[Rfam]
Nucleotides: 108
Stems, first nucleotide, its partner, number of pairs: 004106004008101002012097001018091001024086002027082001029080003
Number, partner (000 for none) and nucleotide at each position: 001000u002000a003000a004106u005105u006104u007103g008101u009100u010000u011000g012097g013000g014000a015000a016000a017000a018091a019000u020000u021000c022000u023000u024086a025085u026000u027082u028000a029080g030079u031078u032000a033000u034000g035000g036000c037000a038000a039000a040000c041000u042000u043000g044000u045000a046000u047000a048000u049000a050000a051000u052000u053000a054000c055000u056000c057000a058000u059000a060000a061000u062000u063000a064000u065000u066000u067000a068000u069000u070000a071000u072000u073000g074000u075000g076000u077000g078031a079030a080029u081000a082027a083000u084000a085025a086024u087000u088000u089000u090000u091018u092000a093000a094000g095000a096000u097012u098000u099000u100009a101008a102000u103007u104006g105005a106004a107000a108000u